[Rfam]
Nucleotides: 074
Base pairs, nucleotide, nucleotide: 004071005070006069007068010065011064012063013062014061015060016059017058020056021055022054023052026050027049028048029047030046031045
Number, partner (000 for none) and nucleotide at each position: 001000a002000u003000c004071u005070g006069g007068c008000c009000a010065a011064a012063u013062c014061u015060c016059a017058g018000c019000a020056g021055g022054c023052a024000a025000c026050u027049g028048u029047g030046a031045g032000u033000g034000u035000u036000u037000u038000u039000g040000c041000c042000c043000c044000u045031c046030u047029c048028a049027c050026a051000g052023u053000u054022g055021c056020c057000a058017u059016u060015g061014g062013g063012g064011u065010u066000g067000u068007g069006c070005u071004a072000a073000a074000u

The record is a 74-nucleotide sequence from Anguilla anguilla, which matches "mir-216 microRNA precursor family" in Rfam. The base pairs follow the family's consensus structure, which was predicted with WAR. A reference for the family is Shao et al. (2008), "Identification of novel chicken microRNAs and analysis of their genomic organization", Gene. The family is grouped with related families in Rfam's "mir-216 clan".